[Rfam]
RNA sequence: AGCCUGGGCCCGUGCGGCUCGGACGCCCGAACCGUGUCAGGACCUGACGGUAGCAGCACUAAGGGAUGCUCUGGGCAGGCGCGUGGUUCCGGGUUUUUU
Numbered sequence: 001a002g003c004c005u006g007g008g009c010c011c012g013u014g015c016g017g018c019u020c021g022g023a024c025g026c027c028c029g030a031a032c033c034g035u036g037u038c039a040g041g042a043c044c045u046g047a048c049g050g051u052a053g054c055a056g057c058a059c060u061a062a063g064g065g066a067u068g069c070u071c072u073g074g075g076c077a078g079g080c081g082c083g084u085g086g087u088u089c090c091g092g093g094u095u096u097u098u099u
Stems, first nucleotide, its partner, number of pairs: 004092005009085001011083004017076006026065003034059004042051003
Rfam assigns this 99-nucleotide sequence from Gloeobacter violaceus to the family "Bacterial small signal recognition particle RNA". Its family is annotated with signal recognition particle, plasma membrane targeting and SRP-dependent cotranslational protein targeting to membrane, signal sequence recognition in the Gene Ontology. About the family: The signal recognition particle (SRP) is a universally conserved ribonucleoprotein involved in the co-translational targeting of proteins to membranes. The organism belongs to Gloeobacter violaceus, within Bacteria. The family's consensus secondary structure is taken from published work. The literature on the family includes a 2003 paper in Nucleic Acids Res by Rosenblad et al., "SRPDB: Signal Recognition Particle Database". Its Rfam clan is "SRP clan". The sequence is in the family's curated seed alignment.